[Rfam]
Record summary
This 143-nucleotide RNA sequence from Arthrobacter sp. HMWF013 belongs to the Rfam family "TPP riboswitch aptamer (THI element)". The match comes from Rfam's covariance-model search (60 bits).

RNA sequence: UAUUUACGACAGGGGAGCGCCGCCGUCGGGCAUCACUGGCAUUGCCAGGGGAACCAAGGGUGGGCGCUGAGAGUGCGGACAGCCGCAGACCCUCGAACCUGAUCCGGUUAGUACCGGCGCAAGGGAGUCGAGUUCUCGAAGUG
Numbered sequence: 001u002a003u004u005u006a007c008g009a010c011a012g013g014g015g016a017g018c019g020c021c022g023c024c025g026u027c028g029g030g031c032a033u034c035a036c037u038g039g040c041a042u043u044g045c046c047a048g049g050g051g052a053a054c055c056a057a058g059g060g061u062g063g064g065c066g067c068u069g070a071g072a073g074u075g076c077g078g079a080c081a082g083c084c085g086c087a088g089a090c091c092c093u094c095g096a097a098c099c100u101g102a103u104c105c106g107g108u109u110a111g112u113a114c115c116g117g118c119g120c121a122a123g124g125g126a127g128u129c130g131a132g133u134u135c136u137c138g139a140a141g142u143g
Stems, first nucleotide, its partner, number of pairs: 007130004011093004017067005074087005098124003104117004
The base pairs follow the family's consensus structure, which is taken from published work.